[Rfam]
RNA sequence: AUACUUACCUGGCAGAGGAGGUACCAUGAUCACGAAGGUGGUGUUCCCAGGGUGAGGCUUAUCCAUUGCACUCCUGCGAUUUCCCCAAAUGUGGGAAACUCGACUGUGUAAUUUGUGGUAGUGGGGUACUGCAUUUGUCCUUCCCCAU
Numbered sequence: 001a002u003a004c005u006u007a008c009c010u011g012g013c014a015g016a017g018g019a020g021g022u023a024c025c026a027u028g029a030u031c032a033c034g035a036a037g038g039u040g041g042u043g044u045u046c047c048c049a050g051g052g053u054g055a056g057g058c059u060u061a062u063c064c065a066u067u068g069c070a071c072u073c074c075u076g077c078g079a080u081u082u083c084c085c086c087a088a089a090u091g092u093g094g095g096a097a098a099c100u101c102g103a104c105u106g107u108g109u110a111a112u113u114u115g116u117g118g119u120a121g122u123g124g125g126g127u128a129c130u131g132c133a134u135u136u137g138u139c140c141u142u143c144c145c146c147a148u
Stems, first nucleotide, its partner, number of pairs: 012107004017047004023042005049075004054071001077102003080098003084094002122147005128142001131140001133138001
Record summary: This 148-nucleotide RNA sequence from Vicugna pacos belongs to the Rfam family "U1 spliceosomal RNA". U1 is a small nuclear RNA (snRNA) component of the spliceosome (involved in pre-mRNA splicing). The organism belongs to Vicugna, within Eukaryota. It is annotated as a spliceosomal small nuclear RNA.